Nucleotides: 082
Base pairs, nucleotide, nucleotide: 009043010042013039018038019037020036021035022034025033026032027031055079056078057077060075063072
Number, partner (000 for none) and nucleotide at each position: 001000c002000u003000u004000g005000g006000c007000g008000c009043u010042g011000g012000c013039g014000u015000a016000g017000c018038g019037g020036u021035u022034c023000u024000u025033g026032g027031c028000a029000u030000c031027g032026c033025c034022g035021a036020a037019c038018u039013c040000u041000g042010c043009g044000a045000g046000c047000a048000c049000c050000c051000g052000g053000g054000c055079g056078c057077c058000g059000a060075g061000u062000a063072c064000g065000a066000c067000g068000c069000c070000a071000a072063g073000a074000c075060c076000g077057g078056g079055c080000u081000g082000g
The record is an 82-nucleotide RNA from Nonomuraea jabiensis, which matches "Actinobacteria sRNA Ms_AS-4" in Rfam. The family has 9 seed sequences and 207 matches in Rfam 15.1. A reference for the family is Li et al. (2013), "Identification of small RNAs in Mycobacterium smegmatis using heterologous Hfq", RNA. It scores 64 bits against the family's covariance model. By type it is a small RNA.